RNA sequence: GCGCGGGUUGUGCCAAACGGACGCGACGGUGCAGAAGAACAUCGGAAUUUUUUUGUUUUCCUCCGAUGGCCGACGAAAUGGCAGCCGAGCUUCUUAUCCGUCCGGCCC
Numbered sequence: 001g002c003g004c005g006g007g008u009u010g011u012g013c014c015a016a017a018c019g020g021a022c023g024c025g026a027c028g029g030u031g032c033a034g035a036a037g038a039a040c041a042u043c044g045g046a047a048u049u050u051u052u053u054u055g056u057u058u059u060c061c062u063c064c065g066a067u068g069g070c071c072g073a074c075g076a077a078a079u080g081g082c083a084g085c086c087g088a089g090c091u092u093c094u095u096a097u098c099c100g101u102c103c104g105g106c107c108c
Stems, first nucleotide, its partner, number of pairs: 006107004011023002014020001025102005034093004040068007069082003
Shown here is a 108-nucleotide RNA from Rhizobium sp. BK376, a member of the family "Rhizobiales sRNA Atu_At1". Rfam classes the family as a small RNA. The match comes from Rfam's covariance-model search (101 bits).